[Rfam]
RNA sequence: UGGCCGCCACACGACUGGCGCAGGUGGACCACCACCGGGGAGUGACGUUCGUGGGCAUCGCCCGCCUGGGUGCCCGCA
Number, nucleotide and partner (000 for none) at each position: 001u000002g000003g049004c000005c047006g046007c000008c000009a000010c044011a043012c042013g000014a000015c039016u038017g066018g065019c064020g063021c000022a000023g000024g035025u034026g033027g032028a000029c000030c000031a000032c027033c026034a025035c024036c000037g000038g016039g015040g000041a000042g012043u011044g010045a000046c006047g005048u000049u003050c000051g000052u000053g000054g000055g073056c072057a071058u070059c069060g000061c000062c000063c020064g019065c018066c017067u000068g000069g059070g058071u057072g056073c055074c000075c000076g000077c000078a000
The family of this 78-nucleotide RNA from Ornithinimicrobium sp. CNJ-824 is "ZMP/ZTP riboswitch aptamer (pfl RNA motif)". The family's consensus secondary structure is taken from published work. NCBI's taxonomy places the organism under Bacteria, Bacillati, Actinomycetes, Ornithinimicrobiaceae, Ornithinimicrobium.